[Rfam]
RNA sequence: UUGUACAGUCAGAGCUAUAAAUCUCUCCCUGUGUGAUACGGAGGAAGAAAAAUUUGGUGAGAAUAUCGUUUCAGGCGUCCAUUAAUUGAUUGACGAUCUGAUUGUUGCUCUUCAACAU
Numbered sequence: 001u002u003g004u005a006c007a008g009u010c011a012g013a014g015c016u017a018u019a020a021a022u023c024u025c026u027c028c029c030u031g032u033g034u035g036a037u038a039c040g041g042a043g044g045a046a047g048a049a050a051a052a053u054u055u056g057g058u059g060a061g062a063a064u065a066u067c068g069u070u071u072c073a074g075g076c077g078u079c080c081a082u083u084a085a086u087u088g089a090u091u092g093a094c095g096a097u098c099u100g101a102u103u104g105u106u107g108c109u110c111u112u113c114a115a116c117a118u
Stems, first nucleotide, its partner, number of pairs: 004033005011026004057113001059110003065102004074097001076095004082089002

The family of this 118-nucleotide sequence from Papaver somniferum is "Small nucleolar RNA snoR111". The family has 6 seed sequences and 533 matches in Rfam 15.1. Rfam links the family to the GO terms RNA processing and nucleolus. The literature on the family includes a 2002 paper in Curr Biol by Marker et al., "Experimental RNomics: identification of 140 candidates for small non-messenger RNAs in the plant Arabidopsis thaliana". The family's RNA type in Rfam is H/ACA-box small nucleolar RNA.